[Rfam]
RNA sequence: ACCGCCUUGAGGCCCCGUCAGAACAUCAGGCAGGAGCGGGGGAACCACUUCCUCCGGACGCCCUCGGGCGUCCUCGGGGUGAAGCCCUCACCGAUCGCGAACAGCGGCCGGUCAGGGCCGGGCACGUACCUCUUGCCCGAACCCGACAGCUAACUUCGUAGGCGUUGCGAGAGGUCUU
Dot-bracket structure: ..((((......((..................)).((((((....(.............................)(((.....((((.........................))))..((((...........))))...))).........)))))).))))..............

c-di-AMP riboswitch aptamer (ydaO/yuaA leader): a 178-nucleotide sequence from Terracoccus luteus. The organism belongs to Terracoccus, within Bacteria. The base pairs follow the family's consensus structure.